Small nucleolar RNA SNORD16: a 100-nucleotide RNA sequence from Turnix velox.
A reference for the family is Fragapane et al. (1993), "A novel small nucleolar RNA (U16) is encoded inside a ribosomal protein intron and originates by processing of the pre-mRNA", EMBO J.
It is annotated as a C/D-box small nucleolar RNA.
Its Rfam clan is "SNORD16 clan".
RNA sequence: UGCCAUGAUGUCGUAAUUUGCGUCUUACUCUGUGCACAGUGACAGUUGCCUGCUGUCAGAGUGCUGGCACAGAUGGUUGACGACCAAGUAAAACUGAGCA
Number, nucleotide and partner (000 for none) at each position: 001u100002g099003c098004c000005a000006u000007g000008a000009u000010g000011u000012c000013g000014u000015a000016a000017u000018u000019u000020g000021c082022g081023u080024c079025u000026u000027a000028c000029u000030c072031u071032g070033u069034g068035c000036a000037c000038a000039g064040u063041g057042a056043c055044a054045g053046u000047u000048g000049c000050c000051u000052g000053c045054u044055g043056u042057c041058a000059g000060a000061g000062u000063g040064c039065u000066g000067g000068c034069a033070c032071a031072g030073a000074u000075g000076g000077u000078u000079g024080a023081c022082g021083a000084c000085c000086a000087a000088g000089u000090a000091a000092a000093a000094c000095u000096g000097a000098g003099c002100a001